[Rfam]
RNA sequence: UACAUGAAAUUUAAUAUAACUCGUAUAACCCCGGGAAUAUGGCCCGGAAGUCUCUACCCGAAAACCGUGAAUUUUCGGACUACGAGGGAAUACAAACGGUGC
Numbered sequence: 001u002a003c004a005u006g007a008a009a010u011u012u013a014a015u016a017u018a019a020c021u022c023g024u025a026u027a028a029c030c031c032c033g034g035g036a037a038u039a040u041g042g043c044c045c046g047g048a049a050g051u052c053u054c055u056a057c058c059c060g061a062a063a064a065c066c067g068u069g070a071a072u073u074u075u076c077g078g079a080c081u082a083c084g085a086g087g088g089a090a091u092a093c094a095a096a097c098g099g100u101g102c
Base pairs, nucleotide, nucleotide: 020086021085022084023083024082025081031047032046033045034044035043058078059077060076061075062074063073064072
Rfam assigns this 102-nucleotide sequence from Paenibacillus sp. JCM 10914 to the family "Purine riboswitch aptamer". The source organism's lineage runs through Bacteria, Bacillati, Bacillota, Caryophanales and Paenibacillus. It scores 85 bits against the family's covariance model.